[Rfam]
RNA: Small nucleolar RNA SNORD66
RNA sequence: AGCUAGUGAGGACUUUUGUCUUUGUGCCACAUGUCUGGACCACUGAUAAUUAGAUCAUUAAGAGUU
Numbered sequence: 001a002g003c004u005a006g007u008g009a010g011g012a013c014u015u016u017u018g019u020c021u022u023u024g025u026g027c028c029a030c031a032u033g034u035c036u037g038g039a040c041c042a043c044u045g046a047u048a049a050u051u052a053g054a055u056c057a058u059u060a061a062g063a064g065u066u
Stems, first nucleotide, its partner, number of pairs: 001066004